[Rfam]
RNA sequence: GAGCUGUGAAGAUCUCUGUGCUUAUGUGAUCGCUAGGGUUUAUCAUACUCAUCUGAACUUAAAGAUGACAUUAAGAGUAUAAGCUC
Numbered sequence: 001g002a003g004c005u006g007u008g009a010a011g012a013u014c015u016c017u018g019u020g021c022u023u024a025u026g027u028g029a030u031c032g033c034u035a036g037g038g039u040u041u042a043u044c045a046u047a048c049u050c051a052u053c054u055g056a057a058c059u060u061a062a063a064g065a066u067g068a069c070a071u072u073a074a075g076a077g078u079a080u081a082a083g084c085u086c
Stems, first nucleotide, its partner, number of pairs: 001086004
Dot-bracket structure: ((((..............................................................................))))